[Rfam]
RNA sequence: CUUCACCGAGCCCAGCCACAACGGCCGGUCCUCGAACCGCUCCUGGCCGUACGUCGCCAGCAGCGCACCCGCCUC
Numbered sequence: 001c002u003u004c005a006c007c008g009a010g011c012c013c014a015g016c017c018a019c020a021a022c023g024g025c026c027g028g029u030c031c032u033c034g035a036a037c038c039g040c041u042c043c044u045g046g047c048c049g050u051a052c053g054u055c056g057c058c059a060g061c062a063g064c065g066c067a068c069c070c071g072c073c074u075c
Stems, first nucleotide, its partner, number of pairs: 015025003031071001038065002043060003047056001049054001

ASpks TB sRNA: a 75-nucleotide RNA sequence. The family has 77 seed sequences and 9,052 matches in Rfam 15.1. A search with the family's covariance model found it, with a score of 76 bits.